[Rfam]
Nucleotides: 104
Stems, first nucleotide, its partner, number of pairs: 003102006013043005021032003026081004044073004049069002053063002077096001082093004
Number, partner (000 for none) and nucleotide at each position: 001000g002000a003102u004101u005100u006099a007098u008097a009000a010000a011000g012000a013043a014042g015041a016040g017039g018000g019000a020000a021032g022031a023030g024000a025000g026081c027080a028079g029078g030023c031022u032021c033000c034000g035000c036000g037000a038000a039017c040016c041015u042014c043013u044073a045072g046071c047070a048000a049069c050068c051000a052000g053063c054062a055000a056000u057000c058000a059000g060000a061000u062054u063053g064000a065000a066000a067000a068050g069049g070047u071046g072045c073044u074000a075000a076000c077096u078029c079028c080027u081026g082093c083092c084091c085090a086000u087000u088000u089000u090085u091084g092083g093082g094000a095000c096077a097008u098007a099006u100005a101004a102003a103000c104000g